[Rfam]
The family of this 81-nucleotide RNA sequence from Rattus norvegicus is "Small nucleolar RNA SNORD113/SNORD114 family". About the family: The imprinted human domain at 14q32 contains two clusters of tandemly repeated small nucleolar RNAs named 14q(I) and 14q(II) snoRNAs. These two clusters are named SNORD113 and SNORD114 respectively in the HGNC approved gene symbol nomenclature. The snoRNAs found in both clusters are clearly related and are represented here by a single family. These snoRNAs are intron encoded and are processed from the tissue-specific non-coding human MEG8 RNA, which lies downstream of the imprinted genes DLK1 and GTL2. snoRNAs 14q(I) and 14q(II) differ from previously identified C/D box snoRNAs in their expression profiles and lack of complementarity to rRNA and snRNA. Homologues of these snoRNAs are found in the imprinted non-coding mouse transcript Rian, and in the rat non-coding Bsr (brain-specific repetitive) RNA. A search with the family's covariance model found it, with a score of 45 bits.
RNA sequence: UGGAUCAUUGAUGACCAUAAAAGAUGUGGGAGUCGUCUGAAACAUGCAUGAUGACCACAACACUGCGAGUUUUAGGUCCAC
Number, nucleotide and partner (000 for none) at each position: 001u000002g079003g078004a077005u076006c075007a000008u000009u000010g000011a000012u000013g000014a000015c000016c000017a000018u000019a000020a000021a000022a000023g000024a000025u000026g000027u000028g000029g000030g000031a000032g000033u000034c000035g000036u000037c000038u000039g000040a000041a000042a000043c000044a000045u000046g000047c000048a000049u000050g000051a000052u000053g000054a000055c000056c000057a000058c000059a000060a000061c000062a000063c000064u000065g000066c000067g000068a000069g000070u000071u000072u000073u000074a000075g006076g005077u004078c003079c002080a000081c000